[Rfam]
RNA sequence: CUUUCUUAGAUGGUUCUGGGUCUGAAUAACUCAAAUAUUUGUGUGUUGUCAUCAGCUUCAUCUCUUGUGUACCACGAGUUAGGAGUUAAAUAACAGCACUAAAUAG
Numbered sequence: 001c002u003u004u005c006u007u008a009g010a011u012g013g014u015u016c017u018g019g020g021u022c023u024g025a026a027u028a029a030c031u032c033a034a035a036u037a038u039u040u041g042u043g044u045g046u047u048g049u050c051a052u053c054a055g056c057u058u059c060a061u062c063u064c065u066u067g068u069g070u071a072c073c074a075c076g077a078g079u080u081a082g083g084a085g086u087u088a089a090a091u092a093a094c095a096g097c098a099c100u101a102a103a104u105a106g
Base pairs, nucleotide, nucleotide: 043099044098045097046096047095048094054087055086056085057084058083059082062078063077064076
The family of this 106-nucleotide sequence from Medicago truncatula is "Small nucleolar RNA snoR97". The base pairs follow the family's consensus structure, which was predicted with WAR. It scores 88 bits against the family's covariance model.